[Rfam]
Nucleotides: 103
Base pairs, nucleotide, nucleotide: 001101002100003099004098005097006096007095008094011091012090013089014088015087016086017085018084019083020082021081022080023079024078026077027076028075030068033064
Number, partner (000 for none) and nucleotide at each position: 001101a002100u003099u004098g005097c006096a007095g008094u009000a010000c011091c012090u013089g014088g015087a016086a017085u018084u019083a020082a021081g022080u023079u024078g025000a026077c027076u028075g029000u030068g031000c032000a033064g034000c035000c036000u037000u038000u039000u040000u041000u042000u043000a044000a045000a046000g047000c048000a049000a050000u051000g052000g053000c054000u055000u056000c057000a058000g059000c060000u061000c062000a063000c064033c065000a066000u067000u068030c069000u070000c071000a072000a073000g074000u075028c076027a077026g078024c079023a080022a081021c082020u083019u084018g085017a086016u087015u088014c089013c090012a091011g092000c093000a094008a095007u096006u097005g098004c099003g100002a101001u102000g103000c
Overview:
Rfam assigns this 103-nucleotide sequence from Musca domestica to the family "mir-284 microRNA precursor family". The base pairs follow the family's consensus structure, which was predicted with RNAalifold. The literature on the family includes a 2007 paper in Nature by Clark et al., "Evolution of genes and genomes on the Drosophila phylogeny". Gene Ontology terms of the family: miRNA-mediated post-transcriptional gene silencing and RISC complex. Lineage of the source: Eukaryota > Opisthokonta > Metazoa > Pancrustacea > Musca.